Bacterial large subunit ribosomal RNA: a 249-nucleotide part of an RNA from Muribaculaceae bacterium Isolate-110. The family has 102 seed sequences and 51,934 matches in Rfam 15.1.
[Rfam]
RNA sequence: AGGAGAUUUGCGAGGCCCCGACACUAGUACGAGAGGACCGUGUCGGACCGACCACCGGUGAGCCGGUUGUACCGCCAGGUGCACCGCCGGGUAGCCGCGUCGGGCCAGGAUAAGUGCUGAAAGCAUCUAAGCACGAAGCCCCCCUCAAGAUAAGAUCUCCACACAAGGGCCGUCAAAGACGAUGACGUCGAUAGGUCGCAGGUGUACGCACAGCAAUGUGUUCAGCCGAGCGAUACUAAUCGCCCAAAC
Numbered sequence: 001a002g003g004a005g006a007u008u009u010g011c012g013a014g015g016c017c018c019c020g021a022c023a024c025u026a027g028u029a030c031g032a033g034a035g036g037a038c039c040g041u042g043u044c045g046g047a048c049c050g051a052c053c054a055c056c057g058g059u060g061a062g063c064c065g066g067u068u069g070u071a072c073c074g075c076c077a078g079g080u081g082c083a084c085c086g087c088c089g090g091g092u093a094g095c096c097g098c099g100u101c102g103g104g105c106c107a108g109g110a111u112a113a114g115u116g117c118u119g120a121a122a123g124c125a126u127c128u129a130a131g132c133a134c135g136a137a138g139c140c141c142c143c144c145u146c147a148a149g150a151u152a153a154g155a156u157c158u159c160c161a162c163a164c165a166a167g168g169g170c171c172g173u174c175a176a177a178g179a180c181g182a183u184g185a186c187g188u189c190g191a192u193a194g195g196u197c198g199c200a201g202g203u204g205u206a207c208g209c210a211c212a213g214c215a216a217u218g219u220g221u222u223c224a225g226c227c228g229a230g231c232g233a234u235a236c237u238a239a240u241c242g243c244c245c246a247a248a249c
Base pairs, nucleotide, nucleotide: 002160003159004158005157006156007155008154009153012146013145014144015143018046019045020044021043022042023041024040048103049102050101051100052099056097057096058095063090064089065088066087067086068083069082070081071080072079073078108140109139114134115133116132117131118130167245168244169243170242171187172186173185174184175183192238193237194236195234196233197232198231199230201227202226208221209220210219211218212217